[Rfam]
About this RNA:
Rfam assigns this 141-nucleotide RNA sequence from Vibrio sp. 99-8-1 to the family "Vibrio regulatory RNA of OmpA".
RNA sequence: GUAGUGAACAGAGCAUUGAGAAGGUUACCGAGUGGUAGUACUUGAUUUUUAACUGUUUUACUCAACAUACUGCUUUUUUCUUAUUUAUUAAAACUCCUAUGUUUGUAUAGCCCAAUCCCUUUUUGGAUUGGGCUUUUUUUC
Numbered sequence: 001g002u003a004g005u006g007a008a009c010a011g012a013g014c015a016u017u018g019a020g021a022a023g024g025u026u027a028c029c030g031a032g033u034g035g036u037a038g039u040a041c042u043u044g045a046u047u048u049u050u051a052a053c054u055g056u057u058u059u060a061c062u063c064a065a066c067a068u069a070c071u072g073c074u075u076u077u078u079u080c081u082u083a084u085u086u087a088u089u090a091a092a093a094c095u096c097c098u099a100u101g102u103u104u105g106u107a108u109a110g111c112c113c114a115a116u117c118c119c120u121u122u123u124u125g126g127a128u129u130g131g132g133c134u135u136u137u138u139u140u141c
Base pairs, nucleotide, nucleotide: 001066002065004063006058007057008056009055010054011053016052017051018050019049020048021047032046033045035043109135110133111132112131113130114129115128116127117126118125
By type it is an antisense RNA. On this family, see Sabharwal et al., RNA Biol 2015: "The VrrA sRNA controls a stationary phase survival factor Vrp of Vibrio cholerae". NCBI's taxonomy places the organism under Bacteria, Pseudomonadati, Pseudomonadota, Gammaproteobacteria, Vibrio.